[Rfam]
RNA sequence: GCAGACUCACUCUGCACCUGGCUGCAGCCCCAGGCGGGUGCUUUUUCUGUCUGCCACAGAAACGUUCCAGGGUGCUGUGACCACCUUGACCUGUCAAGGGCGAUGCAGCUGCCUGGGGACAUGGAG
Numbered sequence: 001g002c003a004g005a006c007u008c009a010c011u012c013u014g015c016a017c018c019u020g021g022c023u024g025c026a027g028c029c030c031c032a033g034g035c036g037g038g039u040g041c042u043u044u045u046u047c048u049g050u051c052u053g054c055c056a057c058a059g060a061a062a063c064g065u066u067c068c069a070g071g072g073u074g075c076u077g078u079g080a081c082c083a084c085c086u087u088g089a090c091c092u093g094u095c096a097a098g099g100g101c102g103a104u105g106c107a108g109c110u111g112c113c114u115g116g117g118g119a120c121a122u123g124g125a126g
Stems, first nucleotide, its partner, number of pairs: 001054006014041007022033003066117006074109006082102001084100003

Record summary: Rfam assigns this 126-nucleotide RNA from Equus caballus to the family "Small nucleolar RNA SNORA77". About the family: ACA63 (SNORA77) is a member of the H/ACA class of snoRNAs that guide the sites of modification of uridines to pseudouridines. The organism belongs to Equus, within Eukaryota. The literature on the family includes a 2006 paper in RNA by Schattner et al., "A computational screen for mammalian pseudouridylation guide H/ACA RNAs".